Rfam assigns this 57-nucleotide sequence from Cylindrospermum stagnale to the family "Nitrogen stress-induced RNA 1". Pairs were carried over by alignment from the consensus structure. It scores 43 bits against the family's covariance model. The source organism's lineage runs through Bacteria, Cyanophyceae, Nostocales, Cylindrospermum and Cylindrospermum stagnale. The family's RNA type in Rfam is small RNA.

[Rfam]
RNA sequence: UGGUAGAUGCACCUUGAUUAAAUCUUAGCCCCCGGCUUACAGCUGGGGGCCUUUAUU
Numbered sequence: 001u002g003g004u005a006g007a008u009g010c011a012c013c014u015u016g017a018u019u020a021a022a023u024c025u026u027a028g029c030c031c032c033c034g035g036c037u038u039a040c041a042g043c044u045g046g047g048g049g050c051c052u053u054u055a056u057u
Stems, first nucleotide, its partner, number of pairs: 002013003029049009